[Rfam]
RNA sequence: UCGCAAGUCCGCCUUGUCGCUGCCCGACCGUCGGGGAGAGGAAAGUCCGGGCAACACAGAGCACCGCGCAAGCUAACGGCUUGAUAUCCGUGAGGGUAUAGGAGCGUAACAGAGAAUGACCGCCUGUACGGGACUUGGCGUUUCGUGUGCAGGCAAGGGUGAAAAGGCGGGGUAAGAGCCCACCGCGGAGGCAGCGAUGUCGUCCGGCCGUACGUCUCGCGGGUUGCAAGACCAUGUAUACCGGCAAUCAAGGGCUGCUCGUCCGAUGCCGGGGGGUAGGUUGCUUGAGACGGCGGGAGACCGCCGCCCUAGAUAAAUGACAAGGGCCCCGGAAGGGGUACAGAACCCGGCUUACAGGACUUGCGAUUAA
Numbered sequence: 001u002c003g004c005a006a007g008u009c010c011g012c013c014u015u016g017u018c019g020c021u022g023c024c025c026g027a028c029c030g031u032c033g034g035g036g037a038g039a040g041g042a043a044a045g046u047c048c049g050g051g052c053a054a055c056a057c058a059g060a061g062c063a064c065c066g067c068g069c070a071a072g073c074u075a076a077c078g079g080c081u082u083g084a085u086a087u088c089c090g091u092g093a094g095g096g097u098a099u100a101g102g103a104g105c106g107u108a109a110c111a112g113a114g115a116a117u118g119a120c121c122g123c124c125u126g127u128a129c130g131g132g133a134c135u136u137g138g139c140g141u142u143u144c145g146u147g148u149g150c151a152g153g154c155a156a157g158g159g160u161g162a163a164a165a166g167g168c169g170g171g172g173u174a175a176g177a178g179c180c181c182a183c184c185g186c187g188g189a190g191g192c193a194g195c196g197a198u199g200u201c202g203u204c205c206g207g208c209c210g211u212a213c214g215u216c217u218c219g220c221g222g223g224u225u226g227c228a229a230g231a232c233c234a235u236g237u238a239u240a241c242c243g244g245c246a247a248u249c250a251a252g253g254g255c256u257g258c259u260c261g262u263c264c265g266a267u268g269c270c271g272g273g274g275g276g277u278a279g280g281u282u283g284c285u286u287g288a289g290a291c292g293g294c295g296g297g298a299g300a301c302c303g304c305c306g307c308c309c310u311a312g313a314u315a316a317a318u319g320a321c322a323a324g325g326g327c328c329c330c331g332g333a334a335g336g337g338g339u340a341c342a343g344a345a346c347c348c349g350g351c352u353u354a355c356a357g358g359a360c361u362u363g364c365g366a367u368u369a370a
Base pairs, nucleotide, nucleotide: 001366002365003364004363005362006361007360008359009358010357011355012325013324014323015322016321017320018319020038021037023035024034025033026032027031043353044352045351047350048349049348050347051346052226053225054224055223059260060259061258062257064222065221066220067219068218069083070082071081072080073079084099086097087096088095089094100217101216104215105214106213107212108211120158121157122154123153124152125151126150127149128148129147130146166184167183169181170180171179185208186206187205188204189203191200192199193198230282231281232280233279241272242271243270244269245268252264253263254262255261289308291306292305293304294303295302296301
This 370-nucleotide sequence from Alistipes sp. CHKCI003 belongs to the Rfam family "Bacterial RNase P class A". The family's consensus secondary structure is taken from published work. Lineage of the source: Bacteria > Pseudomonadati > Bacteroidales > Rikenellaceae > Alistipes.